Overview
A member of the RNA family "Plastid-rps18 3UTR RNA" from Cynara cardunculus, 57 nucleotides long. It is annotated as a cis-regulatory element. For this family Rfam cites "Retrograde signaling in plants: A critical review focusing on the GUN pathway and beyond" (Richter et al., Plant Commun, 2023). The family has 238 seed sequences and 1,462 matches in Rfam 15.1.
RNA sequence: UGCAAGUCUUUUACAAAUAAGAAGCAACUAUCUCUUGUACAGAUCGUUUAUUAAUCU
Number, nucleotide and partner (000 for none) at each position: 001u000002g000003c000004a000005a000006g000007u000008c000009u000010u000011u000012u000013a000014c000015a000016a000017a000018u037019a036020a035021g034022a033023a000024g031025c000026a000027a000028c000029u000030a000031u024032c000033u022034c021035u020036u019037g018038u000039a000040c000041a000042g000043a000044u000045c000046g000047u000048u000049u000050a000051u000052u000053a000054a000055u000056c000057u000